[Rfam]
RNA sequence: AGGUGAGGUAGAGGCGCGAAACUUAAGAGUAAGUAGCUAGAGGGUGACACCUUUGAAGGCUACAGAAAGGGAGUUUUGCCGAAGUGACCAUUAACGUCAAACUAAUGGUUGCUGGGGCUACAUUAAAUAAAUGUAGCACUGUCACAAUCUUUUUAGCCCAUUGAUUGUGGAGAACUACUAAACUU
Numbered sequence: 001a002g003g004u005g006a007g008g009u010a011g012a013g014g015c016g017c018g019a020a021a022c023u024u025a026a027g028a029g030u031a032a033g034u035a036g037c038u039a040g041a042g043g044g045u046g047a048c049a050c051c052u053u054u055g056a057a058g059g060c061u062a063c064a065g066a067a068a069g070g071g072a073g074u075u076u077u078g079c080c081g082a083a084g085u086g087a088c089c090a091u092u093a094a095c096g097u098c099a100a101a102c103u104a105a106u107g108g109u110u111g112c113u114g115g116g117g118c119u120a121c122a123u124u125a126a127a128u129a130a131a132u133g134u135a136g137c138a139c140u141g142u143c144a145c146a147a148u149c150u151u152u153u154u155a156g157c158c159c160a161u162u163g164a165u166u167g168u169g170g171a172g173a174a175c176u177a178c179u180a181a182a183c184u185u
Base pairs, nucleotide, nucleotide: 007179008178009177010176011175016079017078018077019076020075021074022073023072024071033063034062035061036060037059038058083113084112085111086110087109088108089107090106091105092104093103114140115139117137118136119135120134121133122132123131124130142170143169144168145167146166147165148164
The family of this 185-nucleotide RNA sequence from Anaerobacillus isosaccharinicus is "Lysine riboswitch aptamer". The base pairs follow the family's consensus structure, which is taken from published work. The organism belongs to Anaerobacillus, within Bacteria. A search with the family's covariance model found it, with a score of 129 bits.